[Rfam]
RNA: Small nucleolar RNA SNORD25
Organism: Papaver nudicaule
RNA sequence: UAUGCCGAUGAUGAUGAACAUAGACCUGUAAUGAUAGCGGACAUGACCGCAAAAUUAUAACAUUUAAGGGGCUGAGGCAUA
Numbered sequence: 001u002a003u004g005c006c007g008a009u010g011a012u013g014a015u016g017a018a019c020a021u022a023g024a025c026c027u028g029u030a031a032u033g034a035u036a037g038c039g040g041a042c043a044u045g046a047c048c049g050c051a052a053a054a055u056u057a058u059a060a061c062a063u064u065u066a067a068g069g070g071g072c073u074g075a076g077g078c079a080u081a
Stems, first nucleotide, its partner, number of pairs: 002080005
Dot-bracket structure: .(((((.....................................................................))))).